gntR-DTE RNA: a 133-nucleotide RNA sequence. The base pairs follow the family's consensus structure, which is taken from published work.
RNA sequence: CGGGUGAAGUUCGUCGGCAGCGGUGCCGCGCGUCGGCGCGACAUGCACUGCACAUCGGCUCUGGAGAACACCCUCGGGUGCCACCUGAUGUGAGCUGUCCUGCUUGGCGUCAGGCAGAAAUAUGGCGUGCUCG
Numbered sequence: 001c002g003g004g005u006g007a008a009g010u011u012c013g014u015c016g017g018c019a020g021c022g023g024u025g026c027c028g029c030g031c032g033u034c035g036g037c038g039c040g041a042c043a044u045g046c047a048c049u050g051c052a053c054a055u056c057g058g059c060u061c062u063g064g065a066g067a068a069c070a071c072c073c074u075c076g077g078g079u080g081c082c083a084c085c086u087g088a089u090g091u092g093a094g095c096u097g098u099c100c101u102g103c104u105u106g107g108c109g110u111c112a113g114g115c116a117g118a119a120a121u122a123u124g125g126c127g128u129g130c131u132c133g
Stems, first nucleotide, its partner, number of pairs: 016099006051092008062083003069080004